This 101-nucleotide RNA sequence from Nitrobacter winogradskyi belongs to the Rfam family "Repression of heat shock gene expression (ROSE) element". A reference for the family is Balsiger et al. (2004), "Replicon-specific regulation of small heat shock genes in Agrobacterium tumefaciens", J Bacteriol. Its family is annotated with response to temperature stimulus and regulation of translation in the Gene Ontology. Rfam's curators write: This family represents a 5' UTR cis-regulatory element found in heat shock mRNAs and is known as the ROSE (repression of heat shock gene expression) element. The ROSE element is a negative regulator of heat shock gene expression. The secondary structure is thought to be regulated by temperature. This regulation blocks access to the ribosome binding site under normal conditions. It scores 53 bits against the family's covariance model.

RNA sequence: CCGGAUGCCUUCGAUACCGGGUCCGGCGCGAGCUUCCAGGCGAUACUCCUGGCGGCUCCCUUCGUAUCCAUCUUGCUCUUUGGAGGACUUGGCUAUGAGGA
Numbered sequence: 001c002c003g004g005a006u007g008c009c010u011u012c013g014a015u016a017c018c019g020g021g022u023c024c025g026g027c028g029c030g031a032g033c034u035u036c037c038a039g040g041c042g043a044u045a046c047u048c049c050u051g052g053c054g055g056c057u058c059c060c061u062u063c064g065u066a067u068c069c070a071u072c073u074u075g076c077u078c079u080u081u082g083g084a085g086g087a088c089u090u091g092g093c094u095a096u097g098a099g100g101a
Stems, first nucleotide, its partner, number of pairs: 001026006008020002030058005036052004061099006068092003073087002076085003
Dot-bracket structure: ((((((.((.........))))))))...(((((.((((.........)))).)))))..((((((.(((..((.(((....)))))..))).))))))..